[Rfam]
RNA: Norovirus cis-acting replication element (CRE)
RNA sequence: AGUGGUUCUCCUCACUACAGGGGUUCUGAAGAAAGAGCUUUCCUAGAAAGGGGAUUCCU
Numbered sequence: 001a002g003u004g005g006u007u008c009u010c011c012u013c014a015c016u017a018c019a020g021g022g023g024u025u026c027u028g029a030a031g032a033a034a035g036a037g038c039u040u041u042c043c044u045a046g047a048a049a050g051g052g053g054a055u056u057c058c059u
Base pairs, nucleotide, nucleotide: 004058005057009052010051011050012049015046016045017044021043022042023041